[Rfam]
RNA sequence: GAUGUGUUUAGUGAUGCUCAACUUUUUUCCCCGUCUAAUCGACCAUGGUGAAAGUCAAUUGAAAAUAAGCCAAUUGUGUCUGAAUCCACAUC
Numbered sequence: 001g002a003u004g005u006g007u008u009u010a011g012u013g014a015u016g017c018u019c020a021a022c023u024u025u026u027u028u029c030c031c032c033g034u035c036u037a038a039u040c041g042a043c044c045a046u047g048g049u050g051a052a053a054g055u056c057a058a059u060u061g062a063a064a065a066u067a068a069g070c071c072a073a074u075u076g077u078g079u080c081u082g083a084a085u086c087c088a089c090a091u092c
Stems, first nucleotide, its partner, number of pairs: 001092006009084001